[Rfam]
RNA: Selenocysteine insertion sequence 1
Organism: Eudromia elegans
RNA sequence: UACACUUCAGUGAAGACUGCAUAGAAAACCUCUGGGUGUGUGCAGGUCUGAUGCCUGGUGUG
Dot-bracket structure: (((((.........(((((((((.....((....))..)))))).))).........)))))